[Rfam]
RNA: Ribosomal protein L10 leader
Organism: Carboxydothermus hydrogenoformans
RNA sequence: CAAAUAAAUAUUUAUUUGCCGUAGACCGUUGGUGCCUGAGUGCUUAAUGGGAAACCGCCAACCGAGGCAAGGCUUAAGGAAGAAAAACCCAAGGCCGCCGUGUGUCUACGGCGGCCUUAAUUGCUUUCGAG
Number, nucleotide and partner (000 for none) at each position: 001c000002a000003a000004a000005u000006a000007a000008a000009u000010a000011u000012u000013u000014a000015u000016u000017u000018g000019c000020c000021g000022u000023a000024g000025a000026c000027c000028g062029u061030u060031g059032g058033u057034g043035c042036c000037u000038g000039a000040g000041u000042g035043c034044u000045u000046a000047a000048u000049g000050g000051g000052a000053a000054a000055c000056c000057g033058c032059c031060a030061a029062c028063c000064g000065a000066g000067g000068c000069a000070a000071g000072g000073c000074u000075u000076a000077a000078g000079g000080a000081a000082g000083a000084a000085a000086a000087a000088c000089c000090c000091a000092a000093g116094g115095c114096c113097g112098c111099c110100g109101u108102g107103u000104g000105u000106c000107u102108a101109c100110g099111g098112c097113g096114g095115c094116c093117u000118u000119a000120a000121u000122u000123g000124c000125u000126u000127u000128c000129g000130a000131g000